[Rfam]
This 107-nucleotide RNA sequence from Apium graveolens belongs to the Rfam family "Plant small nucleolar RNA R71". Gene Ontology terms of the family: nucleolus and RNA processing.
RNA sequence: AUGCCAUGGUAUGGGCACUUCCUUAGCUUCUCCUAAUAUCGAUCCCAAGCAUCACACAGAGAUUUACCAGUUUGCUGAGCAAACUGAGUAACAGCAUUCCUGAUUGC
Numbered sequence: 001a002u003g004c005c006a007u008g009g010u011a012u013g014g015g016c017a018c019u020u021c022c023u024u025a026g027c028u029u030c031u032c033c034u035a036a037u038a039u040c041g042a043u044c045c046c047a048a049g050c051a052u053c054a055c056a057c058a059g060a061g062a063u064u065u066a067c068c069a070g071u072u073u074g075c076u077g078a079g080c081a082a083a084c085u086g087a088g089u090a091a092c093a094g095c096a097u098u099c100c101u102g103a104u105u106g107c
Base pairs, nucleotide, nucleotide: 003105005102006101057074058073060071

For this family Rfam cites "Plant snoRNAs: functional evolution and new modes of gene expression" (Brown et al., Trends Plant Sci, 2003).